[Rfam]
RNA sequence: CUCCCUAGGCAAUGGGCAAAGAGACACCUUAUUGGUGGCAUUGUUCUUAUAUCAGGCAGGGGCAGAGCAGAUGACAGUCCUUUGUUCAUCCUAGCUUGAUUCUUGGCAUGGUAGCCAAAGCUGUCUUGGGCCUAUGACUCAUAA
Numbered sequence: 001c002u003c004c005c006u007a008g009g010c011a012a013u014g015g016g017c018a019a020a021g022a023g024a025c026a027c028c029u030u031a032u033u034g035g036u037g038g039c040a041u042u043g044u045u046c047u048u049a050u051a052u053c054a055g056g057c058a059g060g061g062g063c064a065g066a067g068c069a070g071a072u073g074a075c076a077g078u079c080c081u082u083u084g085u086u087c088a089u090c091c092u093a094g095c096u097u098g099a100u101u102c103u104u105g106g107c108a109u110g111g112u113a114g115c116c117a118a119a120g121c122u123g124u125c126u127u128g129g130g131c132c133u134a135u136g137a138c139u140c141a142u143a144a
Stems, first nucleotide, its partner, number of pairs: 003062004008057001013054003019048003023042002027038002084138003098132001100130001104128003108124003112120001